The record is a 236-nucleotide RNA from Heyndrickxia oleronia, which matches "T-box leader" in Rfam. The family's RNA type in Rfam is cis-regulatory leader. Pairs were carried over by alignment from the consensus structure, which is taken from published work.

[Rfam]
RNA sequence: AUAUAAGCGAAGAUAGGAUGUAAAGUAGUGUUUAUCUCCCUGUUUUUUAGAGAGCUGAUGAUUGGUGGAAAUCAGUACAAAGAUAAACAUGAAUUUCAAUUCUGGAGCUUUCUUUUCUAAAAAAGAUGAAACAUCUUCUAAAAGAAAAGACGGUCAAAUAGAUCGUUAACAAUGAAGAGUGGUAGAUAGUCAUAUCUACAACUAGGGUGGUACCGCGAUAAUUGAUCGUCCCUACU
Numbered sequence: 001a002u003a004u005a006a007g008c009g010a011a012g013a014u015a016g017g018a019u020g021u022a023a024a025g026u027a028g029u030g031u032u033u034a035u036c037u038c039c040c041u042g043u044u045u046u047u048u049a050g051a052g053a054g055c056u057g058a059u060g061a062u063u064g065g066u067g068g069a070a071a072u073c074a075g076u077a078c079a080a081a082g083a084u085a086a087a088c089a090u091g092a093a094u095u096u097c098a099a100u101u102c103u104g105g106a107g108c109u110u111u112c113u114u115u116u117c118u119a120a121a122a123a124a125g126a127u128g129a130a131a132c133a134u135c136u137u138c139u140a141a142a143a144g145a146a147a148a149g150a151c152g153g154u155c156a157a158a159u160a161g162a163u164c165g166u167u168a169a170c171a172a173u174g175a176a177g178a179g180u181g182g183u184a185g186a187u188a189g190u191c192a193u194a195u196c197u198a199c200a201a202c203u204a205g206g207g208u209g210g211u212a213c214c215g216c217g218a219u220a221a222u223u224g225a226u227c228g229u230c231c232c233u234a235c236u
Stems, first nucleotide, its partner, number of pairs: 007108002015103004028090006041079003054076006112149007151165003182199007204233004215229005